[Rfam]
Notes: The record is a 76-nucleotide sequence from Raphanus sativus, which matches "Small nucleolar RNA SNORD18" in Rfam. The match comes from Rfam's covariance-model search (43 bits). Pairs were carried over by alignment from the consensus structure, which was predicted with PFOLD.
RNA sequence: GAGAUGUGAUGAGUAACUUAUUGGUCCGUGUUUCUGAUUUACCGUGACCGAGAAUUUUUAACCAACCUCUGAUCUC
Numbered sequence: 001g002a003g004a005u006g007u008g009a010u011g012a013g014u015a016a017c018u019u020a021u022u023g024g025u026c027c028g029u030g031u032u033u034c035u036g037a038u039u040u041a042c043c044g045u046g047a048c049c050g051a052g053a054a055u056u057u058u059u060a061a062c063c064a065a066c067c068u069c070u071g072a073u074c075u076c
Stems, first nucleotide, its partner, number of pairs: 001076004
The family's RNA type in Rfam is C/D-box small nucleolar RNA. Lineage of the source: Eukaryota > Viridiplantae > Spermatophyta > Magnoliopsida > Raphanus.